RNA: GA-cis RNA
Organism: Schaedlerella arabinosiphila
RNA sequence: AAUAGGAGGAAGGCAAAUGCGAAGCAUUUUUCAAAAUGCCUUCCGACGACUUGCCCUCGAACGGAGGUGAGGGGGCGCUACAUUAU
Numbered sequence: 001a002a003u004a005g006g007a008g009g010a011a012g013g014c015a016a017a018u019g020c021g022a023a024g025c026a027u028u029u030u031u032c033a034a035a036a037u038g039c040c041u042u043c044c045g046a047c048g049a050c051u052u053g054c055c056c057u058c059g060a061a062c063g064g065a066g067g068u069g070a071g072g073g074g075g076c077g078c079u080a081c082a083u084u085a086u
Stems, first nucleotide, its partner, number of pairs: 008044006015029005053076003057072002061068002